Alphaproteobacterial ar14: a 133-nucleotide sequence from Pseudooceanicola marinus. The family's RNA type in Rfam is small RNA. Rfam describes the family as follows. Smr14C2 was renamed NfeR1 (Nodule Formation Efficiency RNA) highly expressed in salt stress and during the symbiotic interaction on legume roots.
RNA sequence: AACAGUUCGCCACCCUCUCCUCCUCCCUGGGUGGUGAUGUCAGGACCGGCGGGAGCUCUCCUCCUCCCUGCUCCCGCCGGACACUGACCGCAGAUACGGUCGCUCUCUCCUCCUCCCUGAGCGAUCGUUGUAU
Number, nucleotide and partner (000 for none) at each position: 001a000002a000003c000004a000005g038006u037007u000008c000009g035010c034011c033012a032013c031014c030015c029016u000017c000018u000019c000020c000021u000022c000023c000024u000025c000026c000027c000028u000029g015030g014031g013032u012033g011034g010035u009036g000037a006038u005039g000040u000041c000042a000043g000044g000045a000046c000047c079048g078049g077050c076051g075052g074053g073054a072055g071056c070057u000058c000059u000060c000061c000062u000063c000064c000065u000066c000067c000068c000069u000070g056071c055072u054073c053074c052075c051076g050077c049078c048079g047080g000081a000082c000083a000084c000085u000086g000087a000088c000089c000090g000091c000092a000093g000094a000095u000096a128097c127098g126099g125100u124101c123102g122103c121104u120105c119106u000107c000108u000109c000110c000111u000112c000113c000114u000115c000116c000117c000118u000119g105120a104121g103122c102123g101124a100125u099126c098127g097128u096129u000130g000131u000132a000133u000